The record is a 99-nucleotide RNA sequence from Bactrocera dorsalis, which matches "mir-31 microRNA precursor family" in Rfam.
Gene Ontology terms of the family: RISC complex and gene silencing by miRNA.
The family has 75 seed sequences and 1,181 matches in Rfam 15.1.
The match comes from Rfam's covariance-model search (60 bits).
RNA sequence: UGUUGAUCAGUUGGCAAGAUGUCGGCAUAGCUGAAGUUAGGCUUCGUGCGCCAUUCUCUAUGAAAGCGGCUAUGCCUCAUCUAGUCAAUUAUUUCAACG
Dot-bracket structure: ....((..(((((((.(((((..((((((((((.................................)))))))))).))))).)))))))..)).....